[Rfam]
RNA sequence: AUGAUGAAAAUUAGAGAGAAUGAGUGAUCAUCGCCGAAGGGGCAAGCUAUAUAAACUCUCAGGCAAAAGGAUAAUUUUCGGACG
Dot-bracket structure: .....((((((((......((((....)))).(((((..(((.............))))).))).......)))))))).....
Rfam assigns this 84-nucleotide sequence from Macrococcoides bohemicum to the family "Glycine riboswitch aptamer". About the family: This family represents the bacterial glycine riboswitch. The match comes from Rfam's covariance-model search (63 bits). The pairing is the family consensus, mapped onto this sequence.